[Rfam]
RNA sequence: UGCGUAUUUUGCCCAGGCGGAACUCGACCGCCGGUUCAGGCCAUGACGCGCUUCAUUGAUGAGCACCGGCAGACAUAUGGUGUCGGGUCAAUCUGCAAGAUCCUGCCGAUUGCACCA
Numbered sequence: 001u002g003c004g005u006a007u008u009u010u011g012c013c014c015a016g017g018c019g020g021a022a023c024u025c026g027a028c029c030g031c032c033g034g035u036u037c038a039g040g041c042c043a044u045g046a047c048g049c050g051c052u053u054c055a056u057u058g059a060u061g062a063g064c065a066c067c068g069g070c071a072g073a074c075a076u077a078u079g080g081u082g083u084c085g086g087g088u089c090a091a092u093c094u095g096c097a098a099g100a101u102c103c104u105g106c107c108g109a110u111u112g113c114a115c116c117a
Stems, first nucleotide, its partner, number of pairs: 016032005078117005089112002092109002095106003